This 188-nucleotide RNA from Aeromicrobium sp. belongs to the Rfam family "Actinobacteria sRNA Ms_IGR-5".
RNA sequence: ACACGGAUAGGAGGUGGUUCCAGGAAUGAAUAGAUCUUGGACUUGUGAGGUGGCUGUCCGCUAGCCGCAAGGCAACGGCCGGUGGCGGCGAAAAUCCCGCAGUCACCCGACCCGCAGGGCGUCGAGUUGUCCACUCGACCUGUGUCCUCCUCUCCGGAAGAACGACACAGCCCUGCGGGUCGUCCACG
Numbered sequence: 001a002c003a004c005g006g007a008u009a010g011g012a013g014g015u016g017g018u019u020c021c022a023g024g025a026a027u028g029a030a031u032a033g034a035u036c037u038u039g040g041a042c043u044u045g046u047g048a049g050g051u052g053g054c055u056g057u058c059c060g061c062u063a064g065c066c067g068c069a070a071g072g073c074a075a076c077g078g079c080c081g082g083u084g085g086c087g088g089c090g091a092a093a094a095u096c097c098c099g100c101a102g103u104c105a106c107c108c109g110a111c112c113c114g115c116a117g118g119g120c121g122u123c124g125a126g127u128u129g130u131c132c133a134c135u136c137g138a139c140c141u142g143u144g145u146c147c148u149c150c151u152c153u154c155c156g157g158a159a160g161a162a163c164g165a166c167a168c169a170g171c172c173c174u175g176c177g178g179g180u181c182g183u184c185c186a187c188g
Base pairs, nucleotide, nucleotide: 013058014057015056016055017054018053059090060089061088062087065084067083068082108182109181110180111179112178113177114176115175116174117173118172119171120170121139122138123137124136125135126134

Taxonomically the source falls in Aeromicrobium (Bacteria, Actinomycetota, Actinomycetes, Nocardioidaceae). A search with the family's covariance model found it, with a score of 88 bits.